This 166-nucleotide sequence from Bacillus sp. MUM 116 belongs to the Rfam family "glmS glucosamine-6-phosphate activated ribozyme aptamer". Rfam classes the family as a riboswitch. It scores 123 bits against the family's covariance model. Pairs were carried over by alignment from the consensus structure, which is taken from published work.

[Rfam]
RNA sequence: AAAAACUCUAAAGCGCCUGAACUAAUUCAAGGUAGAUGAAUUAGUUGACGAGGAGGAGGUUUAUCGAAAUGUUCGGCGGAUACCUCCCGGUUGCGAUGCACAACCGUCAGUUCUUCUUUAAAACAUUAGAGGCAACUCGGUGCACAAAGAGAAGAAAUUGCACACC
Numbered sequence: 001a002a003a004a005a006c007u008c009u010a011a012a013g014c015g016c017c018u019g020a021a022c023u024a025a026u027u028c029a030a031g032g033u034a035g036a037u038g039a040a041u042u043a044g045u046u047g048a049c050g051a052g053g054a055g056g057a058g059g060u061u062u063a064u065c066g067a068a069a070u071g072u073u074c075g076g077c078g079g080a081u082a083c084c085u086c087c088c089g090g091u092u093g094c095g096a097u098g099c100a101c102a103a104c105c106g107u108c109a110g111u112u113c114u115u116c117u118u119u120a121a122a123a124c125a126u127u128a129g130a131g132g133c134a135a136c137u138c139g140g141u142g143c144a145c146a147a148a149g150a151g152a153a154g155a156a157a158u159u160g161c162a163c164a165c166c
Stems, first nucleotide, its partner, number of pairs: 020046009055087005064076004088106006111156007124142004129138003